[Rfam]
RNA sequence: CCCAGUGACUGUCAGCUGUCCAGGCCACACCAUGCCUGUGACGGUGUUACAUUUCUGGGAGAGAAAUGCACUGUCGCCACCAAGGUCUUGUCACAUGGCACUGUUUUAGUGUCCAGGCUGACUGCCUUAGAUAGUGCUUUGCACCACUGAGAGUGGAUUAACUUCCUUUAUGAAGUUAGUCCUAGUCUAGGUGCACACAUG
Numbered sequence: 001c002c003c004a005g006u007g008a009c010u011g012u013c014a015g016c017u018g019u020c021c022a023g024g025c026c027a028c029a030c031c032a033u034g035c036c037u038g039u040g041a042c043g044g045u046g047u048u049a050c051a052u053u054u055c056u057g058g059g060a061g062a063g064a065a066a067u068g069c070a071c072u073g074u075c076g077c078c079a080c081c082a083a084g085g086u087c088u089u090g091u092c093a094c095a096u097g098g099c100a101c102u103g104u105u106u107u108a109g110u111g112u113c114c115a116g117g118c119u120g121a122c123u124g125c126c127u128u129a130g131a132u133a134g135u136g137c138u139u140u141g142c143a144c145c146a147c148u149g150a151g152a153g154u155g156g157a158u159u160a161a162c163u164u165c166c167u168u169u170a171u172g173a174a175g176u177u178a179g180u181c182c183u184a185g186u187c188u189a190g191g192u193g194c195a196c197a198c199a200u201g
Stems, first nucleotide, its partner, number of pairs: 001059005007053002011050002015045006021038005068137008082128005088121003092117001097112001099111004140195006155182003159178007
The family of this 201-nucleotide sequence from Monodelphis domestica is "Small nucleolar RNA SNORA74". U19 belongs to the H/ACA class of snoRNAs. snoRNAs bind a number of proteins (including dyskerin, Gar1p and Nop10p in the case of the H/ACA class) to form snoRNP complexes. This class are thought to guide the sites of modification of uridines to pseudouridines by forming direct base pairing interactions with substrate RNAs. It is one of the family's seed sequences. Rfam classes the family as an H/ACA-box small nucleolar RNA. Rfam links the family to the GO terms RNA processing and nucleolus. On this family, see Ganot et al., Genes Dev 1997: "The family of box ACA small nucleolar RNAs is defined by an evolutionarily conserved secondary structure and ubiquitous sequence elements essential for RNA accumulation". NCBI's taxonomy places the organism under Eukaryota, Deuterostomia, Amniota, Mammalia, Monodelphis.